Shown here is a 383-nucleotide RNA sequence from Estrella lausannensis, a member of the family "Bacterial RNase P class A". The source organism's lineage runs through Bacteria, Pseudomonadati, Chlamydiota, Candidatus Criblamydiaceae and Estrella. By type it is a ribozyme.
RNA sequence: UCGGGAAGAGAGGCAGUCGCUCCGGGAUUUAAACACCGGGGAGGAAAGUCUGGACUCCACAGGAGAGGAUACCAGUGAAAGACUGGGGGUCGUAAGGCUACGGAAAGUGCAACAGAAAGUAUACCGAAAAGCAUCUGUCGCAAGGCAGGUGCUUUUACAGGGUGAAAUGCCCGCUUCAGGAGCGGGUACGGGCUGGAGAAAUCCAGCUCUUGCGGCAAACCCUAUCCGGAGCAAGUCUAAAUUGGGUGAUCGGUGCUCCGCUGCACCCUAGUAAGAUGCUCGAGGGCUUUGGCGACAAGGCUCCAAGACUAAUGGCUGCUGGCUAAGGCACCUUGUAAGAGGUGUUUUAGCAACAGAAUCCGGCUUACCAUUUUCCCGGGCUU
Numbered sequence: 001u002c003g004g005g006a007a008g009a010g011a012g013g014c015a016g017u018c019g020c021u022c023c024g025g026g027a028u029u030u031a032a033a034c035a036c037c038g039g040g041g042a043g044g045a046a047a048g049u050c051u052g053g054a055c056u057c058c059a060c061a062g063g064a065g066a067g068g069a070u071a072c073c074a075g076u077g078a079a080a081g082a083c084u085g086g087g088g089g090u091c092g093u094a095a096g097g098c099u100a101c102g103g104a105a106a107g108u109g110c111a112a113c114a115g116a117a118a119g120u121a122u123a124c125c126g127a128a129a130a131g132c133a134u135c136u137g138u139c140g141c142a143a144g145g146c147a148g149g150u151g152c153u154u155u156u157a158c159a160g161g162g163u164g165a166a167a168u169g170c171c172c173g174c175u176u177c178a179g180g181a182g183c184g185g186g187u188a189c190g191g192g193c194u195g196g197a198g199a200a201a202u203c204c205a206g207c208u209c210u211u212g213c214g215g216c217a218a219a220c221c222c223u224a225u226c227c228g229g230a231g232c233a234a235g236u237c238u239a240a241a242u243u244g245g246g247u248g249a250u251c252g253g254u255g256c257u258c259c260g261c262u263g264c265a266c267c268c269u270a271g272u273a274a275g276a277u278g279c280u281c282g283a284g285g286g287c288u289u290u291g292g293c294g295a296c297a298a299g300g301c302u303c304c305a306a307g308a309c310u311a312a313u314g315g316c317u318g319c320u321g322g323c324u325a326a327g328g329c330a331c332c333u334u335g336u337a338a339g340a341g342g343u344g345u346u347u348u349a350g351c352a353a354c355a356g357a358a359u360c361c362g363g364c365u366u367a368c369c370a371u372u373u374u375c376c377c378g379g380g381c382u383u
Base pairs, nucleotide, nucleotide: 001379002378003377004376005375006374007373008372009371012320013319014318015317016316017315018314020041021040022039023038024037025036028033046366047365048364050363051362052361053360054359055231056230057229058228062259063258064257065256067227068226069225070224071223072086073085074084075083076082087101088099089098090097091096102222103221107220108219109216110215124161125160127156128155129154130153131152132151133150134149135148136147137146138145139144169187170186171185172184173183174182190209191208192207193206194205195204196203197202235277236276237275238274244268245267246266247265248264252262253261254260284303285302286301287300288299289298290297291296
Dot-bracket structure: (((((((((..(((((((.((((((..(....)..))))))....[[[.[[[[[((((...[[[[.((((((((((.....)))))(((((....)))).)((...((((.............((.(((((((((((((....)))))))))))))...)).......((((((.......))))))..((((((((....)))))))).....))..)))))))))))))...((((.....(((((...(((.]]]]))).))))).....))))......((((((((....))))))))..........)))))))......................................]]]]]]]]....)))))))))....